The record is a 156-nucleotide RNA sequence from Streptomyces sp. DJ, which matches "c-di-AMP riboswitch aptamer (ydaO/yuaA leader)" in Rfam.
[Rfam]
RNA sequence: GAUCGACACACCUCGAAUCGGCAGGAACGGAGGACCCGGCACGGCGGGGCCGCCCGUGAGGGACGGCUCCUUGGGGUGAAGCCGCGUCAGCGGCCGGGCAACUUCGCCGGCCCGAACCCGACAGGCAAUCCUUCGCAGGCGGAUGACGAAGGGCUC
Numbered sequence: 001g002a003u004c005g006a007c008a009c010a011c012c013u014c015g016a017a018u019c020g021g022c023a024g025g026a027a028c029g030g031a032g033g034a035c036c037c038g039g040c041a042c043g044g045c046g047g048g049g050c051c052g053c054c055c056g057u058g059a060g061g062g063a064c065g066g067c068u069c070c071u072u073g074g075g076g077u078g079a080a081g082c083c084g085c086g087u088c089a090g091c092g093g094c095c096g097g098g099c100a101a102c103u104u105c106g107c108c109g110g111c112c113c114g115a116a117c118c119c120g121a122c123a124g125g126c127a128a129u130c131c132u133u134c135g136c137a138g139g140c141g142g143a144u145g146a147c148g149a150a151g152g153g154c155u156c
Stems, first nucleotide, its partner, number of pairs: 004141002007138001012025002028135005037073002074119003082093004096113004
Pairs were carried over by alignment from the consensus structure.